This 111-nucleotide RNA from Pararge aegeria belongs to the Rfam family "Wolbachia sRNA 46".
The source organism's lineage runs through Eukaryota, Bilateria, Pterygota, Nymphalidae and Pararge aegeria.
It scores 70 bits against the family's covariance model.
Rfam classes the family as a small RNA.
The literature on the family includes a 2014 paper in Proc Natl Acad Sci U S A by Mayoral et al., "Wolbachia small noncoding RNAs and their role in cross-kingdom communications".

[Rfam]
RNA sequence: UUCAAGUAGCCUAUUUUCCUGUCAUGAAAGUAGCUGACACUGGAAUCCAGAAAAAAAGAAGAGUGGAUCCCAGUGUCAGCUACUUUCAUGACACCAUUUGCUACGGAAAUU
Numbered sequence: 001u002u003c004a005a006g007u008a009g010c011c012u013a014u015u016u017u018c019c020u021g022u023c024a025u026g027a028a029a030g031u032a033g034c035u036g037a038c039a040c041u042g043g044a045a046u047c048c049a050g051a052a053a054a055a056a057a058g059a060a061g062a063g064u065g066g067a068u069c070c071c072a073g074u075g076u077c078a079g080c081u082a083c084u085u086u087c088a089u090g091a092c093a094c095c096a097u098u099u100g101c102u103a104c105g106g107a108a109a110u111u
Stems, first nucleotide, its partner, number of pairs: 010105001012103002020093024045068005